[Rfam]
RNA sequence: UCUGAUCUAUGAUGACGAACUUACAAUUAUGCGGACUGCUGGAUGAACGUAGCGGAUAUGGGACUGAGAUCAGCC
Numbered sequence: 001u002c003u004g005a006u007c008u009a010u011g012a013u014g015a016c017g018a019a020c021u022u023a024c025a026a027u028u029a030u031g032c033g034g035a036c037u038g039c040u041g042g043a044u045g046a047a048c049g050u051a052g053c054g055g056a057u058a059u060g061g062g063a064c065u066g067a068g069a070u071c072a073g074c075c
Stems, first nucleotide, its partner, number of pairs: 002073004